[Rfam]
RNA sequence: GAAACCUGAGGUGAGAACAGCCUCCUCACACACGGCCCUGCCGCUGAGCGCUCGUUGAGUGGCAGGCAGUAGAGUAUCCUCCCACAAAGAGGUGAAGAGAUCCGGGGGUGGGCAGCCCGGCAGGUACC
Numbered sequence: 001g002a003a004a005c006c007u008g009a010g011g012u013g014a015g016a017a018c019a020g021c022c023u024c025c026u027c028a029c030a031c032a033c034g035g036c037c038c039u040g041c042c043g044c045u046g047a048g049c050g051c052u053c054g055u056u057g058a059g060u061g062g063c064a065g066g067c068a069g070u071a072g073a074g075u076a077u078c079c080u081c082c083c084a085c086a087a088a089g090a091g092g093u094g095a096a097g098a099g100a101u102c103c104g105g106g107g108g109u110g111g112g113c114a115g116c117c118c119g120g121c122a123g124g125u126a127c128c
Stems, first nucleotide, its partner, number of pairs: 001128001004125005011029005020113004031097001102120005

Shown here is a 128-nucleotide sequence from Skermanella aerolata, a member of the family "skipping-rope RNA". Pairs were carried over by alignment from the consensus structure, which is taken from published work. It is annotated as a small RNA. The source organism's lineage runs through Bacteria, Pseudomonadati, Pseudomonadota, Alphaproteobacteria and Skermanella. The match comes from Rfam's covariance-model search (40 bits).